[Rfam]
RNA sequence: GUUUGCCUGUGUGUGGAUGGUGUACAGCACCAGAGACAGGUGUGUUUGCCUGUUUGUGGAUGGUAUUCAGCGCUAAGGACAGAUGUGUUUGCCU
Numbered sequence: 001g002u003u004u005g006c007c008u009g010u011g012u013g014u015g016g017a018u019g020g021u022g023u024a025c026a027g028c029a030c031c032a033g034a035g036a037c038a039g040g041u042g043u044g045u046u047u048g049c050c051u052g053u054u055u056g057u058g059g060a061u062g063g064u065a066u067u068c069a070g071c072g073c074u075a076a077g078g079a080c081a082g083a084u085g086u087g088u089u090u091g092c093c094u
Stems, first nucleotide, its partner, number of pairs: 004085002007082004018075006026067002029064004034055001036053007